[Rfam]
RNA sequence: CCUUGUAAGUGGAAUUAGGGUCUGAAAAACUCAACAUUGUGUGUUGUCAUCAGCUUCAUCUCCUUCAUAACAUCUCCUUCAUAACCUACCAGAUCGGAGUUAAAUAAUAGCGUUACAUCA
Numbered sequence: 001c002c003u004u005g006u007a008a009g010u011g012g013a014a015u016u017a018g019g020g021u022c023u024g025a026a027a028a029a030c031u032c033a034a035c036a037u038u039g040u041g042u043g044u045u046g047u048c049a050u051c052a053g054c055u056u057c058a059u060c061u062c063c064u065u066c067a068u069a070a071c072a073u074c075u076c077c078u079u080c081a082u083a084a085c086c087u088a089c090c091a092g093a094u095c096g097g098a099g100u101u102a103a104a105u106a107a108u109a110g111c112g113u114u115a116c117a118u119c120a
Base pairs, nucleotide, nucleotide: 041113042112043111044110045109046108052101053100054099055098056097057096059093060092061091
RNA: Small nucleolar RNA snoR97
Organism: Populus alba